Record summary:
The family of this 73-nucleotide RNA from Paenibacillus montanisoli is "tRNA". The match comes from Rfam's covariance-model search (61 bits). It is annotated as a transfer RNA. Its family is annotated with triplet codon-amino acid adaptor activity in the Gene Ontology. The organism belongs to Paenibacillus, within Bacteria.
RNA sequence: GAUCUGGUAGCUCAGCUGGGAGAGCACUAUCUUGACAGGGUAGGGGUCACAGGUUCGAACCCUGUCCAGAUCA
Numbered sequence: 001g002a003u004c005u006g007g008u009a010g011c012u013c014a015g016c017u018g019g020g021a022g023a024g025c026a027c028u029a030u031c032u033u034g035a036c037a038g039g040g041u042a043g044g045g046g047u048c049a050c051a052g053g054u055u056c057g058a059a060c061c062c063u064g065u066c067c068a069g070a071u072c073a
Base pairs, nucleotide, nucleotide: 001072002071003070004069005068006067007066010025011024012023013022027043028042029041030040031039049065050064051063052062053061